About this RNA: Shown here is an 80-nucleotide sequence from Alligator mississippiensis, a member of the family "Mammalian CPEB3 ribozyme". Lineage of the source: Eukaryota > Vertebrata > Archelosauria > Alligatoridae > Alligator. Rfam links the family to the GO term RNA nuclease activity.
RNA sequence: AGAGGUCACAAGUUUGAGGCCGUAGCUGAAGCACUCAUGGUGUGGCCUGUCAGAUUCCAAAGAAAUCUGUGAACUCUGCU
Numbered sequence: 001a002g003a004g005g006u007c008a009c010a011a012g013u014u015u016g017a018g019g020c021c022g023u024a025g026c027u028g029a030a031g032c033a034c035u036c037a038u039g040g041u042g043u044g045g046c047c048u049g050u051c052a053g054a055u056u057c058c059a060a061a062g063a064a065a066u067c068u069g070u071g072a073a074c075u076c077u078g079c080u
Stems, first nucleotide, its partner, number of pairs: 018047004024080003028076002031043003051069006

It scores 42 bits against the family's covariance model.